Description: Shown here is a 60-nucleotide sequence from Salmo salar, a member of the family "mir-30 microRNA precursor family". Its family is annotated with RISC complex and gene silencing by miRNA in the Gene Ontology. About the family: This family consists of the mammalian microRNA (miRNA) precursor mir-30a. Animal miRNAs are transcribed as ~70nt precursors and subsequently processed by the Dicer enzyme to give a ~22nt product.
RNA sequence: UGUAAACAUCCUACACUCUCAGCGGCGCCCUCUAGUAGCCGGGAGUGGGAUGUUUGCGCU
Numbered sequence: 001u002g003u004a005a006a007c008a009u010c011c012u013a014c015a016c017u018c019u020c021a022g023c024g025g026c027g028c029c030c031u032c033u034a035g036u037a038g039c040c041g042g043g044a045g046u047g048g049g050a051u052g053u054u055u056g057c058g059c060u
Stems, first nucleotide, its partner, number of pairs: 001058012015046006022039002